[Rfam]
RNA sequence: GUGUGUUCGUGUGUUGAUGGUGUUCAGCACCAAGGACAUGUGUGUUCGUGUGUUGAUGGUGUUCAGCACCAAGGACAGAUGUGUUUGGGC
Numbered sequence: 001g002u003g004u005g006u007u008c009g010u011g012u013g014u015u016g017a018u019g020g021u022g023u024u025c026a027g028c029a030c031c032a033a034g035g036a037c038a039u040g041u042g043u044g045u046u047c048g049u050g051u052g053u054u055g056a057u058g059g060u061g062u063u064c065a066g067c068a069c070c071a072a073g074g075a076c077a078g079a080u081g082u083g084u085u086u087g088g089g090c
Stems, first nucleotide, its partner, number of pairs: 004081004009076002018071007026063007034051001036049002042047001
Background
The record is a 90-nucleotide RNA from Branchiostoma floridae, which matches "mir-2060 microRNA precursor family" in Rfam. Rfam links the family to the GO terms RISC complex and miRNA-mediated post-transcriptional gene silencing. The family's consensus secondary structure was predicted with RNAalifold.